[Rfam]
RNA sequence: AGGUCAUUUCAAAGAGGGCUUGUAGGACUAAAACCAGGAGCUCUUAACACUGUGACCAAAGAUUGGAGUUCUCCGUAGGAUGCAGUUGUCACUCAAUAGUGCUCUGUUUUCCUAAGGAGAUAGAAGA
Numbered sequence: 001a002g003g004u005c006a007u008u009u010c011a012a013a014g015a016g017g018g019c020u021u022g023u024a025g026g027a028c029u030a031a032a033a034c035c036a037g038g039a040g041c042u043c044u045u046a047a048c049a050c051u052g053u054g055a056c057c058a059a060a061g062a063u064u065g066g067a068g069u070u071c072u073c074c075g076u077a078g079g080a081u082g083c084a085g086u087u088g089u090c091a092c093u094c095a096a097u098a099g100u101g102c103u104c105u106g107u108u109u110u111c112c113u114a115a116g117g118a119g120a121u122a123g124a125a126g127a
Stems, first nucleotide, its partner, number of pairs: 002057006014045008023037001026035001070120005077113004085105001088102001090101004
RNA: Small nucleolar RNA SNORA25
Organism: Equus asinus